[Rfam]
Nucleotides: 399
Base pairs, nucleotide, nucleotide: 001395002394003393004392005391006390007389008388009387010386011384012340013339014338015337016336017335018334020045021044022043023042024041026039027038028037050382051381052380054379055378056377057376058375059220060219061218062217066276067275068274069273071216072215073214074213075212076090077089078088079087080086091105092103093102094101095100106211107210111209112208113205114204115203128150129149130146131145132144133143134142135141136140158176159175160174161173162172163171178200179198180197181196182195183194184193185192186191224297225296226295227294256288257287258286259285260284261283268280269279270278271277304324305323306322307321308320309318310317311316
Number, partner (000 for none) and nucleotide at each position: 001395c002394g003393a004392g005391u006390u007389g008388g009387c010386c011384g012340g013339g014338c015337g016336g017335c018334c019000g020045c021044g022043g023042c024041g025000g026039u027038c028037g029000g030000g031000u032000u033000c034000a035000c036000c037028c038027g039026a040000a041024c042023g043022u044021c045020g046000a047000g048000g049000a050382a051381a052380g053000u054379c055378c056377g057376g058375a059220c060219u061218u062217c063000a064000c065000a066276g067275a068274g069273c070000a071216g072215g073214g074213u075212g076090a077089u078088u079087g080086c081000c082000a083000a084000c085000g086080g087079c088078a089077a090076u091105c092103c093102g094101a095100g096000g097000u098000g099000a100095c101094u102093c103092g104000c105091g106211g107210g108000a109000c110000a111209g112208u113205g114204c115203c116000a117000c118000a119000g120000a121000g122000a123000a124000c125000a126000g127000a128150c129149c130146g131145c132144c133143a134142c135141c136140g137000a138000u139000u140136c141135g142134g143133u144132g145131g146130u147000a148000a149129g150128g151000g152000u153000g154000a155000a156000a157000c158176g159175g160174u161173g162172c163171g164000g165000u166000a167000a168000g169000a170000g171163c172162g173161c174160a175159c176158c177000a178200g179198c180197a181196u182195u183194c184193c185192g186191g187000g188000u189000g190000a191186c192185c193184g194183g195182a196181g197180u198179g199000g200178c201000u202000a203115g204114g205113c206000a207000a208112a209111c210107c211106c212075c213074a214073c215072c216071c217062g218061a219060a220059g221000c222000a223000a224297g225296g226295c227294c228000a229000a230000g231000a232000a233000g234000g235000u236000c237000g238000c239000a240000a241000c242000c243000u244000g245000g246000u247000u248000g249000c250000g251000g252000c253000u254000g255000c256288g257287c258286a259285g260284a261283c262000g263000u264000u265000c266000g267000a268280g269279g270278g271277c272000u273069g274068c275067u276066c277271g278270c279269c280268c281000g282000a283261g284260u285259c286258u287257g288256c289000g290000g291000g292000u293000a294227g295226g296225c297224c298000g299000c300000u301000c302000g303000a304324g305323g306322c307321a308320c309318c310317c311316g312000g313000u314000g315000a316311c317310g318309g319000u320308g321307u322306g323305u324304c325000c326000a327000g328000a329000u330000g331000g332000a333000u334018g335017g336016u337015c338014g339013c340012c341000g342000c343000c344000g345000c346000g347000c348000c349000a350000c351000c352000a353000g354000u355000c356000a357000u358000g359000g360000u361000g362000g363000u364000g365000c366000g367000g368000a369000a370000c371000a372000g373000a374000a375058u376057c377056c378055g379054g380052c381051u382050u383000a384011c385000a386010g387009g388008c389007c390006a391005a392004c393003u394002c395001g396000u397000c398000c399000g